RNA sequence: AAACGAUAAUAGCAAACCCACCGAAAGGUGGCGACGCAAAGCUAUAGGGCCUUACCCCUCAUCGAGAGGGCUGGCAGCCAGUUACCGAA
Number, nucleotide and partner (000 for none) at each position: 001a000002a000003a000004c000005g000006a000007u000008a000009a000010u000011a000012g037013c036014a000015a000016a000017c000018c031019c030020a029021c028022c027023g000024a000025a000026a000027g022028g021029u020030g019031g018032c000033g000034a000035c000036g013037c012038a000039a000040a083041g082042c081043u080044a000045u000046a000047g079048g078049g075050c074051c073052u000053u000054a000055c000056c069057c068058c000059u066060c000061a000062u000063c000064g000065a000066g059067a000068g057069g056070g000071c000072u000073g051074g050075c049076a000077g000078c048079c047080a043081g042082u041083u040084a000085c000086c000087g000088a000089a000
RNA: c-di-GMP-I riboswitch aptamer
Organism: Butyricicoccus sp. TM10-16AC